Rfam assigns this 55-nucleotide RNA from Escherichia fergusonii to the family "Selenocysteine insertion sequence 2".
A reference for the family is Huttenhofer et al. (1996), "Solution structure of mRNA hairpins promoting selenocysteine incorporation in Escherichia coli and their base-specific interaction with special elongation factor SELB", RNA.
Rfam links the family to the GO term selenocysteine incorporation.
RNA sequence: GCGUCUGACACGGCCCAUCGGUUGCAGGUCUGCACCAGUCGGUCGGUAACGGCGC
Numbered sequence: 001g002c003g004u005c006u007g008a009c010a011c012g013g014c015c016c017a018u019c020g021g022u023u024g025c026a027g028g029u030c031u032g033c034a035c036c037a038g039u040c041g042g043u044c045g046g047u048a049a050c051g052g053c054g055c
Base pairs, nucleotide, nucleotide: 001055002054003053004052005051008047009046011045012044013043014042015041017039018038020036021035022034024033025032026031